The family of this 125-nucleotide sequence from Xaviernesmea oryzae is "rpsB sRNA".
It is annotated as a small RNA.
For this family Rfam cites "Identification of candidate structured RNAs in the marine organism 'Candidatus Pelagibacter ubique'" (Meyer et al., BMC Genomics, 2009).
The match comes from Rfam's covariance-model search (40 bits).
[Rfam]
RNA sequence: CACACGCGGAGUUGGGAUCGACCGGGAGACAUCCGGCGGUUCCGCCGGUGCCGUGCCAAGCCUCGAAAACGGGGCAGAGCCGGCUGAUAGCUUCGCGGAGGUUCAACCGGAAAAGGAGAAAAAGG
Numbered sequence: 001c002a003c004a005c006g007c008g009g010a011g012u013u014g015g016g017a018u019c020g021a022c023c024g025g026g027a028g029a030c031a032u033c034c035g036g037c038g039g040u041u042c043c044g045c046c047g048g049u050g051c052c053g054u055g056c057c058a059a060g061c062c063u064c065g066a067a068a069a070c071g072g073g074g075c076a077g078a079g080c081c082g083g084c085u086g087a088u089a090g091c092u093u094c095g096c097g098g099a100g101g102u103u104c105a106a107c108c109g110g111a112a113a114a115g116g117a118g119a120a121a122a123a124g125g
Base pairs, nucleotide, nucleotide: 001100003098005097006096007095008094009093010092011091015043016042023035024034025033050084051083052082053081